RNA sequence: CCAGACGGUCGGAUGGCCGCCUUCGGCGCGGCGCCGCCGCGUCGGGGGAGGAAAGUCCGGGCUCCACGGAAACACGGUGCCGGGUAACGCCCGGCGGGGGCGACUCCAGGGAAAGUGCCACAGAAAGCAAACCGCCGGUUUUGGGCUUCGGCCCGUGCCGGCAAGGGUGAAAGGGUGCGGUAAGAGCGCACCGCGUUCCCGGCAACGGGGACGGCACGGUAAACCCCACCGGGAGCAAGACCAAGUAGGGACGGCAGGCCGGAGUUUUUCCGGCAAGCGGGUUUUCGCGCCGCCGUCCGGGUAGGUCGCACGAGGCGUCCGGCAACGGACGUCCCAGAUGAAUGGCCAUCCUCCGCUCCAGAUGGGCGGAGACAGAACCCGGCUUACAGGCCGUCUGGUAUU
Dot-bracket structure: ((((((((((((((((((.(((((((((((.......)))))))))))....[[[.[[[[[((((....[[[..((((((((((.....)))))(((((....)))).)((...(((((............((((((((.(.............).))))))..)).......((((((.......))))))(((((((((....)))))))).)..)))..)))))))))))))...((((......((((((......................(((...]]]..)))..)))))).....))))......((((((((....))))))))..........)))))))...........................]]]]]]]].).))))))))))....

This 402-nucleotide RNA sequence from a Rhodospirillaceae bacterium belongs to the Rfam family "Bacterial RNase P class A".
By type it is a ribozyme.
A search with the family's covariance model found it, with a score of 305 bits.